[Rfam]
RNA sequence: AGGCUUUAGCUGGUUGAACCCGGGCCAAAUUGUAACAAUGUUUCAUAACAUUUGGUCCCCUUCAACCAGCUGUAGUUG
Numbered sequence: 001a002g003g004c005u006u007u008a009g010c011u012g013g014u015u016g017a018a019c020c021c022g023g024g025c026c027a028a029a030u031u032g033u034a035a036c037a038a039u040g041u042u043u044c045a046u047a048a049c050a051u052u053u054g055g056u057c058c059c060c061u062u063c064a065a066c067c068a069g070c071u072g073u074a075g076u077u078g
Base pairs, nucleotide, nucleotide: 003076004075005074008071009070010069011068012067013066014065015064016063017062018061022057023056025055026054027053028052029051030050
RNA: mir-133 microRNA precursor family
Organism: Laodelphax striatellus